[Rfam]
Record summary
Purine riboswitch aptamer: a 102-nucleotide RNA sequence from Sporosarcina luteola. Pairs were carried over by alignment from the consensus structure, which is taken from published work. NCBI's taxonomy places the organism under Bacteria, Bacillota, Caryophanales, Caryophanaceae, Sporosarcina.

RNA sequence: AAAAAAGAUAACUGAAGCCCUCGUAUAUGUCUGAUAAUAUGGUUCGGACGUUUCUACCAAGUCACCGUGAAUGACUUGUCUAUGAUGGCGUGGAUAGCUUUG
Number, nucleotide and partner (000 for none) at each position: 001a000002a000003a000004a000005a000006a000007g000008a000009u000010a000011a000012c000013u000014g000015a000016a000017g000018c088019c087020c000021u085022c084023g083024u082025a081026u000027a000028u000029g049030u048031c047032u046033g045034a044035u000036a000037a000038u000039a000040u000041g000042g000043u000044u034045c033046g032047g031048a030049c029050g000051u000052u000053u000054c000055u000056a000057c000058c078059a077060a076061g075062u074063c073064a072065c000066c000067g000068u000069g000070a000071a000072u064073g063074a062075c061076u060077u059078g058079u000080c000081u025082a024083u023084g022085a021086u000087g019088g018089c000090g000091u000092g000093g000094a000095u000096a000097g000098c000099u000100u000101u000102g000